[Rfam]
RNA sequence: UGGAAUCUGACAGGGUCGAUAUGAGAACACAUGACGUGACUGUUGGGGCAUUUUACGUGUUCUCAGGUCGCCCCUGCAAGACUCAC
Numbered sequence: 001u002g003g004a005a006u007c008u009g010a011c012a013g014g015g016u017c018g019a020u021a022u023g024a025g026a027a028c029a030c031a032u033g034a035c036g037u038g039a040c041u042g043u044u045g046g047g048g049c050a051u052u053u054u055a056c057g058u059g060u061u062c063u064c065a066g067g068u069c070g071c072c073c074c075u076g077c078a079a080g081a082c083u084c085a086c
Base pairs, nucleotide, nucleotide: 007080008079011076012075013074014073017070018069019068023064024063025062026061027060028059029058030057032055033054034053
Notes:
The family of this 86-nucleotide RNA from Kalanchoe fedtschenkoi is "MIR398 microRNA precursor family". Rfam 15.1 lists 627 matches to the family in 211 species. NCBI's taxonomy places the organism under Eukaryota, Euphyllophyta, Magnoliopsida, Pentapetalae, Kalanchoe.